[Rfam]
The record is a 366-nucleotide sequence from Paenibacillus sp. GSMTC-2017, which matches "transfer-messenger RNA" in Rfam. Rfam classes the family as a non-coding RNA gene. Its Rfam clan is "tRNA clan". The match comes from Rfam's covariance-model search (167 bits).
RNA sequence: GGGGGCGUUUAUGGAUUCGACGGGGAUUGGACGAGCGCGUGUUAGCGGGUAGCAGGGAGUCGUCUGCUUCAUCAACGCUAAAGCCUAUUAAAUGGCAAAACUCAAAACAACUACGCUUUAGCAGCCUAAGAAACUGUUGGCGUGCUUCUACCCAGCAUCGUCCAUGUGACUGGGAUAGGGGCUAACAUAUAGUGGAAUACGCUGUCACAUCUCCGCCUGGGGUGUGCUGAAGAAGAUAAUCAGGCUGACCCAACGCAGAGCAGGUUACAGUGCGCUGCUCGGGUGACAUCAAAUCUGUAACUACACCCGUAGAAAGCCGUGUGGCGUGAUCUUCGGACAGGGGUUCAAAUCCCCUCGCCUCCACCA
Numbered sequence: 001g002g003g004g005g006c007g008u009u010u011a012u013g014g015a016u017u018c019g020a021c022g023g024g025g026a027u028u029g030g031a032c033g034a035g036c037g038c039g040u041g042u043u044a045g046c047g048g049g050u051a052g053c054a055g056g057g058a059g060u061c062g063u064c065u066g067c068u069u070c071a072u073c074a075a076c077g078c079u080a081a082a083g084c085c086u087a088u089u090a091a092a093u094g095g096c097a098a099a100a101c102u103c104a105a106a107a108c109a110a111c112u113a114c115g116c117u118u119u120a121g122c123a124g125c126c127u128a129a130g131a132a133a134c135u136g137u138u139g140g141c142g143u144g145c146u147u148c149u150a151c152c153c154a155g156c157a158u159c160g161u162c163c164a165u166g167u168g169a170c171u172g173g174g175a176u177a178g179g180g181g182c183u184a185a186c187a188u189a190u191a192g193u194g195g196a197a198u199a200c201g202c203u204g205u206c207a208c209a210u211c212u213c214c215g216c217c218u219g220g221g222g223u224g225u226g227c228u229g230a231a232g233a234a235g236a237u238a239a240u241c242a243g244g245c246u247g248a249c250c251c252a253a254c255g256c257a258g259a260g261c262a263g264g265u266u267a268c269a270g271u272g273c274g275c276u277g278c279u280c281g282g283g284u285g286a287c288a289u290c291a292a293a294u295c296u297g298u299a300a301c302u303a304c305a306c307c308c309g310u311a312g313a314a315a316g317c318c319g320u321g322u323g324g325c326g327u328g329a330u331c332u333u334c335g336g337a338c339a340g341g342g343g344u345u346c347a348a349a350u351c352c353c354c355u356c357g358c359c360u361c362c363a364c365c366a
Stems, first nucleotide, its partner, number of pairs: 001362007021335009035322005041317003046309005052070001054068002061083001063081001118140007144182006151174004156168003161196005202232002205229001208226003215245005248284004253279001255278004260273003264301004270294001339355005